[Rfam]
RNA sequence: UGACCAAGGGGUCGGGUUGUUCUGAAUGCAGCUGGUUCGGAGUGACCUAGGGGUACAGGGAGGACCUCCGAACCGGGCCGGGUCAGGCAACAG
Numbered sequence: 001u002g003a004c005c006a007a008g009g010g011g012u013c014g015g016g017u018u019g020u021u022c023u024g025a026a027u028g029c030a031g032c033u034g035g036u037u038c039g040g041a042g043u044g045a046c047c048u049a050g051g052g053g054u055a056c057a058g059g060g061a062g063g064a065c066c067u068c069c070g071a072a073c074c075g076g077g078c079c080g081g082g083u084c085a086g087g088c089a090a091c092a093g
Stems, first nucleotide, its partner, number of pairs: 001085005010079004014048005020042008050068005056062001

Rfam assigns this 93-nucleotide RNA from Pseudomonas rhizosphaerae to the family "ivy-DE RNA". It is annotated as a cis-regulatory element. It scores 89 bits against the family's covariance model. Taxonomically the source falls in Pseudomonas (Bacteria, Gammaproteobacteria, Pseudomonadales, Pseudomonadaceae). Pairs were carried over by alignment from the consensus structure, which is taken from published work.